A member of the RNA family "Small nucleolar RNA Z221/R21b" from Hevea brasiliensis, 93 nucleotides long. The match comes from Rfam's covariance-model search (72 bits). The literature on the family includes a 2003 paper in Nucleic Acids Res by Chen et al., "The high diversity of snoRNAs in plants: identification and comparative study of 120 snoRNA genes from Oryza sativa". Rfam links the family to the GO terms RNA processing and nucleolus. Rfam classes the family as a C/D-box small nucleolar RNA. NCBI's taxonomy places the organism under Eukaryota, Viridiplantae, Spermatophyta, Malpighiales, Hevea. The base pairs follow the family's consensus structure, which was predicted with WAR.
RNA sequence: GGGCAGCGAUGAGGAGAUGGAGAAAGUCAUGCACCACUCUGAUAUAUAAUUGAGGUGAUAAAUCUCUGAUACCCAUAUUAUACAUCUGAGCCU
Numbered sequence: 001g002g003g004c005a006g007c008g009a010u011g012a013g014g015a016g017a018u019g020g021a022g023a024a025a026g027u028c029a030u031g032c033a034c035c036a037c038u039c040u041g042a043u044a045u046a047u048a049a050u051u052g053a054g055g056u057g058a059u060a061a062a063u064c065u066c067u068g069a070u071a072c073c074c075a076u077a078u079u080a081u082a083c084a085u086c087u088g089a090g091c092c093u
Stems, first nucleotide, its partner, number of pairs: 001093004